[Rfam]
The record is a 162-nucleotide RNA from Otolemur garnettii, which matches "Small Cajal body specific RNA 1" in Rfam.
Lineage of the source: Eukaryota > Opisthokonta > Craniata > Sarcopterygii > Otolemur.
Gene Ontology terms of the family: RNA processing, Cajal body and nucleolus.
scaRNAs are a specific class of small nuclear RNAs which localise to the Cajal bodies and guide the modification of RNA polymerase II transcribed spliceosomal RNAs U1, U2, U4, U5 and U12.
On this family, see Darzacq et al., EMBO J 2002: "Cajal body-specific small nuclear RNAs: a novel class of 2'-O-methylation and pseudouridylation guide RNAs".
RNA sequence: AUGAAGUUUUAAGAAACUUUGACUUCUCCAAGUAUUAUGUCAAAGGCUUGUGAUAUGUUGUGAUAGCUGGGUUUAAGAAGUGCAAUAUUAAAACAAAAGCCAUGAAUCUUUUAAGCCCAGUGUGUAAAGAUACACUCUGAGUUAUAACUCAGAGACACAAUG
Dot-bracket structure: ..(.(.((......((((..(...(((((.(((.((......)).))).).))........))...)..))))....)).).)...............(.(..................((((((....))))))(((((((....)))))))).)......